[Rfam]
A member of the RNA family "U12 minor spliceosomal RNA" from Carlito syrichta, 142 nucleotides long. For this family Rfam cites "Pre-mRNA splicing: the discovery of a new spliceosome doubles the challenge" (Tarn and Steitz, Trends Biochem Sci, 1997). The match comes from Rfam's covariance-model search (102 bits). The family has 62 seed sequences and 2,106 matches in Rfam 15.1. Lineage of the source: Eukaryota > Gnathostomata > Teleostomi > Haplorrhini > Carlito.

RNA sequence: AUGCCUUACACUUAUGAGUAAGGAAAAUAGCAAUUCAGGGUGAUCCUCACUGCUAAUGUGAGAUAAAUUUUUGAGCAGGUAAAGUUUGCCCCUAAGGUGACCUGCCUGCUUUGCAGGAUGCCUGGAAGUCGUGAUCUGCCUG
Numbered sequence: 001a002u003g004c005c006u007u008a009c010a011c012u013u014a015u016g017a018g019u020a021a022g023g024a025a026a027a028u029a030g031c032a033a034u035u036c037a038g039g040g041u042g043a044u045c046c047u048c049a050c051u052g053c054u055a056a057u058g059u060g061a062g063a064u065a066a067a068u069u070u071u072u073g074a075g076c077a078g079g080u081a082a083a084g085u086u087u088g089c090c091c092c093u094a095a096g097g098u099g100a101c102c103u104g105c106c107u108g109c110u111u112u113g114c115a116g117g118a119u120g121c122c123u124g125g126a127a128g129u130c131g132u133g134a135u136c137u138g139c140c141u142g
Base pairs, nucleotide, nucleotide: 004023005022006021007020008019033044034043035042046062047061048060049059050058076142077141078140079139080138083137084136086134087133088132089131093125095123096122097121098120099119101117102116103115104114105113